A member of the RNA family "L31-Actinobacteria ribosomal protein leader" from Nocardioides sp. AX2bis, 48 nucleotides long. A search with the family's covariance model found it, with a score of 45 bits. It is annotated as a cis-regulatory leader.

[Rfam]
RNA sequence: UCGGUCCGGUUCACGCCUCGCGCACCCCGCGCAGGGCGACCCGGCGCC
Numbered sequence: 001u002c003g004g005u006c007c008g009g010u011u012c013a014c015g016c017c018u019c020g021c022g023c024a025c026c027c028c029g030c031g032c033a034g035g036g037c038g039a040c041c042c043g044g045c046g047c048c
Stems, first nucleotide, its partner, number of pairs: 003048003006044004014038005020032003